[Rfam]
RNA: Small nucleolar RNA SNORA14
Organism: Anguilla anguilla
RNA sequence: GUGCAUUCUUAUAAACCCCCCAGUUGCUGAUCGUAGCUUCUGGGACAAGGAAGGAUGCAAUAACAAACCUUGAAAUAUCCAAAAUGAAGGGUCUUGUUCAAGUGGCUCUUUGCCAAUUUGUUUCUUGGACAAUC
Dot-bracket structure: ..((((..((.(......(((((..((........))..)))))...)))....))))....(....((..((...........(((((.((....(....)..)).)))))..........))..))....).